Shown here is a 108-nucleotide sequence from Cebus imitator, a member of the family "Small nucleolar RNA SNORD46".
Rfam's curators write: U40 is a C/D box small nucleolar RNA, also known as snoZ153 in plants. The human sequence has also been annotated in the sequence databases as U46.
Rfam links the family to the GO terms RNA processing and nucleolus.
NCBI's taxonomy places the organism under Eukaryota, Opisthokonta, Vertebrata, Amniota, Cebus.
By type it is a C/D-box small nucleolar RNA.
RNA sequence: GUUUAGGGUGAUGAAAAAGAAUCCUUAGACAUGGUUGUGGCUAUCUUGGUCACUUGUGUGCCACUUGCCAAUGCUAGGACAUGUCAUAAAAAAAAAAAUUUGCUGCAU
Numbered sequence: 001g002u003u004u005a006g007g008g009u010g011a012u013g014a015a016a017a018a019g020a021a022u023c024c025u026u027a028g029a030c031a032u033g034g035u036u037g038u039g040g041c042u043a044u045c046u047u048g049g050u051c052a053c054u055u056g057u058g059u060g061c062c063a064c065u066u067g068c069c070a071a072u073g074c075u076a077g078g079a080c081a082u083g084u085c086a087u088a089a090a091a092a093a094a095a096a097a098a099u100u101u102g103c104u105g106c107a108u
Stems, first nucleotide, its partner, number of pairs: 001108002004105003